Shown here is a 120-nucleotide RNA, a member of the family "Betaproteobacteria-1 RNA". By type it is a small RNA.
[Rfam]
RNA sequence: UUUUUGUUUGGUCGGGGUAAACGGCAGCGAACAGACUUAGCACCCGGUACUGUGGGGUCAGGGGAGGAAGCACCGGACAGGCGGCGAAGUUGGCACCUGUUCCCCGAAAGGCCGACGACC
Numbered sequence: 001u002u003u004u005u006g007u008u009u010g011g012u013c014g015g016g017g018u019a020a021a022c023g024g025c026a027g028c029g030a031a032c033a034g035a036c037u038u039a040g041c042a043c044c045c046g047g048u049a050c051u052g053u054g055g056g057g058u059c060a061g062g063g064g065a066g067g068a069a070g071c072a073c074c075g076g077a078c079a080g081g082c083g084g085c086g087a088a089g090u091u092g093g094c095a096c097c098u099g100u101u102c103c104c105c106g107a108a109a110g111g112c113c114g115a116c117g118a119c120c
Stems, first nucleotide, its partner, number of pairs: 003035008024053004044076005062104004078099004089116006